This 102-nucleotide RNA from Sutcliffiella cohnii belongs to the Rfam family "Purine riboswitch aptamer". Rfam links the family to the GO term purine nucleobase biosynthetic process. Lineage of the source: Bacteria > Bacillati > Bacilli > Caryophanales > Sutcliffiella. The family's consensus secondary structure is taken from published work. The match comes from Rfam's covariance-model search (90 bits).
[Rfam]
RNA sequence: AAUCACAAACAACAUACUGCUCAUAUAAUCGUGGGGAUAUGGCCCACAAGUUUCUACCGAGUUACCGUAAAUAACUUGACUAUGAGUGACAUUGACAUGUAU
Numbered sequence: 001a002a003u004c005a006c007a008a009a010c011a012a013c014a015u016a017c018u019g020c021u022c023a024u025a026u027a028a029u030c031g032u033g034g035g036g037a038u039a040u041g042g043c044c045c046a047c048a049a050g051u052u053u054c055u056a057c058c059g060a061g062u063u064a065c066c067g068u069a070a071a072u073a074a075c076u077u078g079a080c081u082a083u084g085a086g087u088g089a090c091a092u093u094g095a096c097a098u099g100u101a102u
Stems, first nucleotide, its partner, number of pairs: 018088008029049001031047005058078007